Shown here is a 107-nucleotide RNA from Bacillus subtilis, a member of the family "SAM riboswitch aptamer (S box leader)".
The SAM riboswitch is found upstream of a number of genes which code for proteins involved in methionine or cysteine biosynthesis in Gram-positive bacteria.
The sequence is in the family's curated seed alignment.
NCBI's taxonomy places the organism under Bacteria, Bacillati, Bacillota, Caryophanales, Bacillus subtilis subsp. subtilis.
[Rfam]
RNA sequence: UCCUUAUCAAGAGAGGUGGAGGGACUGGCCCUGCGAUACCCGGCAACCGCUGUUUAACAGAAUGGUGCUAAAUCCUUUAGAGCAAUGAUUGCUCUUGAAGAUAAGGU
Numbered sequence: 001u002c003c004u005u006a007u008c009a010a011g012a013g014a015g016g017u018g019g020a021g022g023g024a025c026u027g028g029c030c031c032u033g034c035g036a037u038a039c040c041c042g043g044c045a046a047c048c049g050c051u052g053u054u055u056a057a058c059a060g061a062a063u064g065g066u067g068c069u070a071a072a073u074c075c076u077u078u079a080g081a082g083c084a085a086u087g088a089u090u091g092c093u094c095u096u097g098a099a100g101a102u103a104a105g106g107u
Stems, first nucleotide, its partner, number of pairs: 002106007013041001015040003021031003027075002042069004047065002050060003073099001079095005
Dot-bracket structure: .(((((((....(.(((...(((...[[)))......))))((((.((.(((.....)))...))))))...(]]...(((((.......)))))...)))))))).